[Rfam]
RNA sequence: CUGUGAGCAGGCAUCUCUCCAACCUACAAGUGGAUCUGGAGUCUGCAGGCUGGUUAGAUGGUUGUCACAUGU
Numbered sequence: 001c002u003g004u005g006a007g008c009a010g011g012c013a014u015c016u017c018u019c020c021a022a023c024c025u026a027c028a029a030g031u032g033g034a035u036c037u038g039g040a041g042u043c044u045g046c047a048g049g050c051u052g053g054u055u056a057g058a059u060g061g062u063u064g065u066c067a068c069a070u071g072u
Stems, first nucleotide, its partner, number of pairs: 007065004012060005019053003023049003030046006
RNA: mir-456 microRNA precursor family